[Rfam]
RNA sequence: GUGCCUCUGCGGUGUUCGUGAUUGAGUCGCGUACUUUCGGCGGACCCACAAUUACCUGCUGUGGAGACCUAUUUAAAAUCUGUCUGGGGCUUGCAAGCCCGUCCCCUUGUUCGCAAGGGACUGUAGCGGGAUCCAAAAGCCAGGCACGAGGUCUCCAUCUCAAAAAGCGGGUUCCCGGAAAGCGUUUCACACGGCACAGGUGGAGGUUUU
Numbered sequence: 001g002u003g004c005c006u007c008u009g010c011g012g013u014g015u016u017c018g019u020g021a022u023u024g025a026g027u028c029g030c031g032u033a034c035u036u037u038c039g040g041c042g043g044a045c046c047c048a049c050a051a052u053u054a055c056c057u058g059c060u061g062u063g064g065a066g067a068c069c070u071a072u073u074u075a076a077a078a079u080c081u082g083u084c085u086g087g088g089g090c091u092u093g094c095a096a097g098c099c100c101g102u103c104c105c106c107u108u109g110u111u112c113g114c115a116a117g118g119g120a121c122u123g124u125a126g127c128g129g130g131a132u133c134c135a136a137a138a139g140c141c142a143g144g145c146a147c148g149a150g151g152u153c154u155c156c157a158u159c160u161c162a163a164a165a166a167g168c169g170g171g172u173u174c175c176c177g178g179a180a181a182g183c184g185u186u187u188c189a190c191a192c193g194g195c196a197c198a199g200g201u202g203g204a205g206g207u208u209u210u
Base pairs, nucleotide, nucleotide: 003207004206005205006204007203008202009201010200012197013196014195015194017193018192019191037179038178040176042175043174044173045171046170063156064155065154067152068151069150070149081146082145083144084143085142086141087140093134098130099129100128101127102126
RNA: 6S / SsrS RNA
Organism: Fimbriiglobus ruber